[Rfam]
RNA sequence: AUGUGCAGCCUUAGCACUCCGGAUCCUAUGCGCCGUCCGAGCUCGCCUGCCAAUUGCUUGCUACGUUUUGUCAGCC
Numbered sequence: 001a002u003g004u005g006c007a008g009c010c011u012u013a014g015c016a017c018u019c020c021g022g023a024u025c026c027u028a029u030g031c032g033c034c035g036u037c038c039g040a041g042c043u044c045g046c047c048u049g050c051c052a053a054u055u056g057c058u059u060g061c062u063a064c065g066u067u068u069u070g071u072c073a074g075c076c
Stems, first nucleotide, its partner, number of pairs: 002016003020035003025030001047074003051070003